A member of the RNA family "mir-965 microRNA precursor family" from Sitophilus oryzae, 71 nucleotides long. Gene Ontology terms of the family: RISC complex and miRNA-mediated post-transcriptional gene silencing. On this family, see Huang et al., Bioorg Khim 2012: "The regulation of silkworm fibroin L chain production by miRNA-965 and miRNA-1926 in insect cells". The family has 16 seed sequences and 224 matches in Rfam 15.1.
[Rfam]
RNA sequence: GCCCUAGGGUGAAAAGCUGUACAGCUAAUGGUAAUUUAAACACAUAAGCGUAUAGCUUUUCCCCUUUGGUU
Numbered sequence: 001g002c003c004c005u006a007g008g009g010u011g012a013a014a015a016g017c018u019g020u021a022c023a024g025c026u027a028a029u030g031g032u033a034a035u036u037u038a039a040a041c042a043c044a045u046a047a048g049c050g051u052a053u054a055g056c057u058u059u060u061c062c063c064c065u066u067u068g069g070u071u
Stems, first nucleotide, its partner, number of pairs: 003069002006066002009063001011061001013059002017055005025048002028045003